Notes:
The record is a 102-nucleotide RNA from Pantoea sp. M_5, which matches "Tryptophan operon leader" in Rfam. The organism belongs to Pantoea, within Bacteria. Gene Ontology terms of the family: tryptophan biosynthetic process and transcriptional attenuation by ribosome.

[Rfam]
RNA sequence: CAUGGCUGGCGCGAUGUUCCCGAAACCGGGCGACACGGUCGUGCACAUUUUGCGUAAACGCUGUGCAGAUACCUGAGCCCGCCACCGAGCGGGCUUUUUUUU
Numbered sequence: 001c002a003u004g005g006c007u008g009g010c011g012c013g014a015u016g017u018u019c020c021c022g023a024a025a026c027c028g029g030g031c032g033a034c035a036c037g038g039u040c041g042u043g044c045a046c047a048u049u050u051u052g053c054g055u056a057a058a059c060g061c062u063g064u065g066c067a068g069a070u071a072c073c074u075g076a077g078c079c080c081g082c083c084a085c086c087g088a089g090c091g092g093g094c095u096u097u098u099u100u101u102u
Stems, first nucleotide, its partner, number of pairs: 009042003015035004019030004076095007083087001